RNA sequence: AGCGUGCAGAUCUUGGCACUUGUAGAAUUCACUGAUACUUGAAUAUUUAAUCUCAGUGAAUCUAUAGUGGCAACCGCGGCACGCU
Numbered sequence: 001a002g003c004g005u006g007c008a009g010a011u012c013u014u015g016g017c018a019c020u021u022g023u024a025g026a027a028u029u030c031a032c033u034g035a036u037a038c039u040u041g042a043a044u045a046u047u048u049a050a051u052c053u054c055a056g057u058g059a060a061u062c063u064a065u066a067g068u069g070g071c072a073a074c075c076g077c078g079g080c081a082c083g084c085u
Base pairs, nucleotide, nucleotide: 003083004082005081006080007079009077013073014072015071017069018068020066022065025062026061029059030058031057032056033055034054
RNA: mir-263 microRNA precursor family